[Rfam]
A member of the RNA family "MIR814 microRNA precursor family" from Oryza sativa, 83 nucleotides long. Its family is annotated with miRNA-mediated post-transcriptional gene silencing and RISC complex in the Gene Ontology. NCBI's taxonomy places the organism under Eukaryota, Streptophyta, Euphyllophyta, Oryzeae, Oryza sativa. The base pairs follow the family's consensus structure, which was predicted with RNAalifold.
RNA sequence: ACCGGAUAUGACACUUCAUAGUACAACGAAUCUGGACAGGCUUACUGUCCAGAUUCGUUGUACUAUGAAGUGUCUCGUCCGGU
Numbered sequence: 001a002c003c004g005g006a007u008a009u010g011a012c013a014c015u016u017c018a019u020a021g022u023a024c025a026a027c028g029a030a031u032c033u034g035g036a037c038a039g040g041c042u043u044a045c046u047g048u049c050c051a052g053a054u055u056c057g058u059u060g061u062a063c064u065a066u067g068a069a070g071u072g073u074c075u076c077g078u079c080c081g082g083u
Stems, first nucleotide, its partner, number of pairs: 001083007010074007018066021